A member of the RNA family "mir-29 microRNA precursor family" from Gadus morhua, 68 nucleotides long. Gene Ontology terms of the family: RISC complex and gene silencing by miRNA. A reference for the family is Ambros (2001), "microRNAs: tiny regulators with great potential", Cell. NCBI's taxonomy places the organism under Eukaryota, Eumetazoa, Eurypterygia, Acanthomorphata, Gadus.
RNA sequence: GGGAACCGGUUUCAGGUGGUGUUUUAGAGUACCAGAUCCAAUCUAGCACCAUUUGAAAUCGGUGUUCC
Numbered sequence: 001g002g003g004a005a006c007c008g009g010u011u012u013c014a015g016g017u018g019g020u021g022u023u024u025u026a027g028a029g030u031a032c033c034a035g036a037u038c039c040a041a042u043c044u045a046g047c048a049c050c051a052u053u054u055g056a057a058a059u060c061g062g063u064g065u066u067c068c
Stems, first nucleotide, its partner, number of pairs: 001068004005063010016052006025045004